A member of the RNA family "DUF805 RNA" from Flavobacterium sp. 9AF, 70 nucleotides long. The match comes from Rfam's covariance-model search (64 bits). Taxonomically the source falls in Flavobacterium (Bacteria, Bacteroidota, Flavobacteriia, Flavobacteriales). Pairs were carried over by alignment from the consensus structure, which is taken from published work.

[Rfam]
Nucleotides: 070
Stems, first nucleotide, its partner, number of pairs: 006023004036053003043064001
Number, partner (000 for none) and nucleotide at each position: 001000u002000a003000g004000a005000a006023g007022u008021g009020g010000a011000g012000u013000u014000c015000u016000g017000a018000a019000a020009c021008c022007a023006c024000u025000u026000u027000a028000a029000u030000a031000a032000a033000c034000g035000u036053g037052g038051a039000a040000g041000a042000a043064u044000c045000u046000g047000a048000a049000a050000a051038u052037c053036c054000u055000u056000a057000u058000g059000a060000g061000u062000a063000a064043g065000a066000a067000u068000a069000a070000a